The record is a 65-nucleotide RNA from Diceros bicornis, which matches "Small nucleolar RNA SNORD83" in Rfam. Rfam links the family to the GO terms RNA processing and nucleolus. A search with the family's covariance model found it, with a score of 36 bits. Rfam classes the family as a C/D-box small nucleolar RNA. The organism belongs to Diceros bicornis, within Eukaryota.
[Rfam]
Nucleotides: 065
Base pairs, nucleotide, nucleotide: 001064002063003062004061022032023031024030025029
Number, partner (000 for none) and nucleotide at each position: 001064g002063u003062u004061a005000c006000g007000u008000g009000a010000u011000g012000u013000g014000c015000u016000g017000u018000a019000u020000g021000a022032g023031u024030g025029c026000u027000u028000g029025g030024u031023g032022c033000u034000a035000a036000g037000a038000u039000g040000a041000c042000c043000u044000c045000u046000a047000u048000c049000a050000c051000c052000g053000u054000u055000g056000a057000c058000u059000g060000a061004u062003a063002g064001c065000c